[Rfam]
A member of the RNA family "Streptomyces RNA 3202" from Streptomyces sp. NL15-2K, 91 nucleotides long. The source organism's lineage runs through Bacteria, Actinomycetota, Kitasatosporales, Streptomycetaceae and Streptomyces.
RNA sequence: CCAAGUCCCGUCGCAAUCCCCCCGGCGCCGGGACUCUCCCGAGUCGGACUUCGGCGCCCAUCCCCCCCGGGCGCCGGAGUCCGGCUCACUU
Dot-bracket structure: ....((((((.(((..........))).))))))......((((((((((.((((((((.........)))))))).))))))))))....
Background:
Pairs were carried over by alignment from the consensus structure. The family's RNA type in Rfam is small RNA. About the family: Identified by deep sequencing of transcriptome at the end of exponential growth phase.